[Rfam]
RNA sequence: UCGAAGUUUCAUUACAAAUGGAUAAAGUUUUGUUUAGUGAUUAUUUUACGAAUCGUUGAAAACAAAGUAGCAAUACCCAAGUCGUGCUUUAGCAAGACAUGGGGUAUUGCUACUUU
Numbered sequence: 001u002c003g004a005a006g007u008u009u010c011a012u013u014a015c016a017a018a019u020g021g022a023u024a025a026a027g028u029u030u031u032g033u034u035u036a037g038u039g040a041u042u043a044u045u046u047u048a049c050g051a052a053u054c055g056u057u058g059a060a061a062a063c064a065a066a067g068u069a070g071c072a073a074u075a076c077c078c079a080a081g082u083c084g085u086g087c088u089u090u091a092g093c094a095a096g097a098c099a100u101g102g103g104g105u106a107u108u109g110c111u112a113c114u115u116u
Stems, first nucleotide, its partner, number of pairs: 008022005064116013077102003081098003085094001
Plastid-psbA-1 3UTR RNA: a 116-nucleotide sequence from Musa balbisiana. NCBI's taxonomy places the organism under Eukaryota, Viridiplantae, Streptophyta, Mesangiospermae, Musa. From the family's description: Plastid psbA-1 is a non-coding RNA (ncRNA) present in plastids. It was identified in inverted repeat sequences in the 3 prime untranslate region (3UTR) of photosystem II quinone-binding protein (psbA). The family's consensus secondary structure was predicted with LocARNA. The literature on the family includes a 2023 paper in Plant Commun by Richter et al., "Retrograde signaling in plants: A critical review focusing on the GUN pathway and beyond".